[Rfam]
RNA sequence: UCUAGAUGGUGGAUAUGGAGGCUGAUAAACUCAUAAAACAUGUGUUGUCAUCAGCUUCAUCUCUUGUAUCUUCACGAGAUUGGAGUUAAAUAACAGCACAAUAUUU
Numbered sequence: 001u002c003u004a005g006a007u008g009g010u011g012g013a014u015a016u017g018g019a020g021g022c023u024g025a026u027a028a029a030c031u032c033a034u035a036a037a038a039c040a041u042g043u044g045u046u047g048u049c050a051u052c053a054g055c056u057u058c059a060u061c062u063c064u065u066g067u068a069u070c071u072u073c074a075c076g077a078g079a080u081u082g083g084a085g086u087u088a089a090a091u092a093a094c095a096g097c098a099c100a101a102u103a104u105u106u
Stems, first nucleotide, its partner, number of pairs: 041100007053087006060079004
This 106-nucleotide RNA sequence from Nelumbo nucifera belongs to the Rfam family "Small nucleolar RNA snoR97". Pairs were carried over by alignment from the consensus structure, which was predicted with WAR. It is annotated as an H/ACA-box small nucleolar RNA. For this family Rfam cites "Experimental RNomics: identification of 140 candidates for small non-messenger RNAs in the plant Arabidopsis thaliana" (Marker et al., Curr Biol, 2002). The organism belongs to Nelumbo, within Eukaryota. Rfam links the family to the GO terms RNA processing and nucleolus.